The family of this 106-nucleotide RNA sequence from Lentibacillus halodurans is "SAM riboswitch aptamer (S box leader)". Rfam describes the family as follows. The SAM riboswitch is found upstream of a number of genes which code for proteins involved in methionine or cysteine biosynthesis in Gram-positive bacteria. The family's consensus secondary structure is taken from published work.

[Rfam]
RNA sequence: UUCUUAUUCAGAGAGGUGGAGGGACAUGGCCCUGUGAAACCUCGGCAGCGGACUUUAUAACAAAGUACUGUGCCAAUUCCAGCAAGCAUUCGCUUGAAAAUAAGAA
Numbered sequence: 001u002u003c004u005u006a007u008u009c010a011g012a013g014a015g016g017u018g019g020a021g022g023g024a025c026a027u028g029g030c031c032c033u034g035u036g037a038a039a040c041c042u043c044g045g046c047a048g049c050g051g052a053c054u055u056u057a058u059a060a061c062a063a064a065g066u067a068c069u070g071u072g073c074c075a076a077u078u079c080c081a082g083c084a085a086g087c088a089u090u091c092g093c094u095u096g097a098a099a100a101u102a103a104g105a106a
Stems, first nucleotide, its partner, number of pairs: 001106008013043005021032003027081003044074004049070002052066004078098001083096005